[Rfam]
RNA sequence: AUGGAUCUUCGGGGUAAGGUGAAAUUCCUGACCGGCGGUGAGGUUUGUUCCUAGUGAAUGAACUAUAGCCCGCGACUCGUCAUUGGAUAACGAUGACGACUGACUUGGUGUAAUUCCAAGGCCGACGGUAAAGUCCGGAUGGGAGAAGAUCAAA
Numbered sequence: 001a002u003g004g005a006u007c008u009u010c011g012g013g014g015u016a017a018g019g020u021g022a023a024a025u026u027c028c029u030g031a032c033c034g035g036c037g038g039u040g041a042g043g044u045u046u047g048u049u050c051c052u053a054g055u056g057a058a059u060g061a062a063c064u065a066u067a068g069c070c071c072g073c074g075a076c077u078c079g080u081c082a083u084u085g086g087a088u089a090a091c092g093a094u095g096a097c098g099a100c101u102g103a104c105u106u107g108g109u110g111u112a113a114u115u116c117c118a119a120g121g122c123c124g125a126c127g128g129u130a131a132a133g134u135c136c137g138g139a140u141g142g143g144a145g146a147a148g149a150u151c152a153a154a
Stems, first nucleotide, its partner, number of pairs: 004151007017029003031134002033124002035073004068122002077099002104120005126137003
RNA: FMN riboswitch aptamer (RFN element)